[Rfam]
RNA sequence: CGCCCUCGUGCGGGAGAGUUCUGUGGCGCCAGCUGCAGACGCCGAAGGAGCAACACCUCUCCGCCAACCUCUCAGGCACCCGGACCGCACGAAUAAC
Numbered sequence: 001c002g003c004c005c006u007c008g009u010g011c012g013g014g015a016g017a018g019u020u021c022u023g024u025g026g027c028g029c030c031a032g033c034u035g036c037a038g039a040c041g042c043c044g045a046a047g048g049a050g051c052a053a054c055a056c057c058u059c060u061c062c063g064c065c066a067a068c069c070u071c072u073c074a075g076g077c078a079c080c081c082g083g084a085c086c087g088c089a090c091g092a093a094u095a096a097c
Base pairs, nucleotide, nucleotide: 006092007091008090009089010088011087012086013085020039021038022037023036041077042076043075044073045072048071049070050069
Glycine riboswitch aptamer: a 97-nucleotide sequence from Mycobacterium botniense. A search with the family's covariance model found it, with a score of 64 bits. The base pairs follow the family's consensus structure.